This 110-nucleotide RNA from Allobosea caraganae belongs to the Rfam family "EcpR1". The base pairs follow the family's consensus structure, which was predicted with WAR. Rfam's curators write: Perviously named SmelC291, SmrC10, or Sra33. According to its overproduction phenotype it was renamed Elongated Cell Phenotype RNA1. Induced by stress,EcpR1 negatively regulates cell cycle master regulatory genes dnaA and gcrA at post-transcriptional level by base pairing between its strongly conserved GC-rich loop and the target mRNAs. It's regulation is hfq-independent but requires RNase E to regulate dnaA. On this family, see Schluter et al., BMC Genomics 2010: "A genome-wide survey of sRNAs in the symbiotic nitrogen-fixing alpha-proteobacterium Sinorhizobium meliloti".
RNA sequence: ACGCCCCUCGGGUGCUCAGGUCCGCCGCAUCUCCUGGGAAACCGGAGGGCUCGGCCGGUCGGUAUCGGGAUUUCUGGCCUCAUCAGACCCCGAAGCCGACCGGCCACCCU
Numbered sequence: 001a002c003g004c005c006c007c008u009c010g011g012g013u014g015c016u017c018a019g020g021u022c023c024g025c026c027g028c029a030u031c032u033c034c035u036g037g038g039a040a041a042c043c044g045g046a047g048g049g050c051u052c053g054g055c056c057g058g059u060c061g062g063u064a065u066c067g068g069g070a071u072u073u074c075u076g077g078c079c080u081c082a083u084c085a086g087a088c089c090c091c092g093a094a095g096c097c098g099a100c101c102g103g104c105c106a107c108c109c110u
Base pairs, nucleotide, nucleotide: 003050004049005048006047008045009044010043015038016037017036018035019034020033053105054104055103056102057101058100059099060098061097062096063095
Dot-bracket structure: ..((((.(((....((((((............))))))....))).))))..(((((((((((...............................))))))))))).....